[Rfam]
RNA sequence: CACACGUAGGGCAUGGGGUCUGUCGGGAGAAAUCCGUCAGGUUCCGCCGGUGGUGCAGACGGUUGUCUGCGCUGUUCGCCCCGCGGAGGUUCAACCGGAAAAGGAGAAAAAGG
Numbered sequence: 001c002a003c004a005c006g007u008a009g010g011g012c013a014u015g016g017g018g019u020c021u022g023u024c025g026g027g028a029g030a031a032a033u034c035c036g037u038c039a040g041g042u043u044c045c046g047c048c049g050g051u052g053g054u055g056c057a058g059a060c061g062g063u064u065g066u067c068u069g070c071g072c073u074g075u076u077c078g079c080c081c082c083g084c085g086g087a088g089g090u091u092c093a094a095c096c097g098g099a100a101a102a103g104g105a106g107a108a109a110a111a112g113g
Stems, first nucleotide, its partner, number of pairs: 001088001003086001005085003009081003015045002024036002027034001052073009
Rfam assigns this 113-nucleotide RNA sequence from Rhizobium sp. RU20A to the family "rpsB sRNA". By type it is a small RNA. The match comes from Rfam's covariance-model search (41 bits).